[Rfam]
RNA: Small nucleolar RNA SNORA81
Organism: Oncorhynchus kisutch
RNA sequence: CCCUUCUUUUUAAAGCACCCUGCUAAAAUUGUGGGGGCGAAGCCUGUGGGCUUCGCUCCUGCGGUCAUGUAAGCAUGGGUACACCAAGGAAGGACAGUAAAGCCAGGGUUGAAAUGAGGCUUGGGUGGACCUCUUUCUUAAUGUCCAGUGUCCUUUGUCUCAAGAUUCUGUGCUACAAAA
Numbered sequence: 001c002c003c004u005u006c007u008u009u010u011u012a013a014a015g016c017a018c019c020c021u022g023c024u025a026a027a028a029u030u031g032u033g034g035g036g037g038c039g040a041a042g043c044c045u046g047u048g049g050g051c052u053u054c055g056c057u058c059c060u061g062c063g064g065u066c067a068u069g070u071a072a073g074c075a076u077g078g079g080u081a082c083a084c085c086a087a088g089g090a091a092g093g094a095c096a097g098u099a100a101a102g103c104c105a106g107g108g109u110u111g112a113a114a115u116g117a118g119g120c121u122u123g124g125g126u127g128g129a130c131c132u133c134u135u136u137c138u139u140a141a142u143g144u145c146c147a148g149u150g151u152c153c154u155u156u157g158u159c160u161c162a163a164g165a166u167u168c169u170g171u172g173c174u175a176c177a178a179a180a
Stems, first nucleotide, its partner, number of pairs: 018079002021075004028068002031065001034059002037056008101174003104170005124149001126147004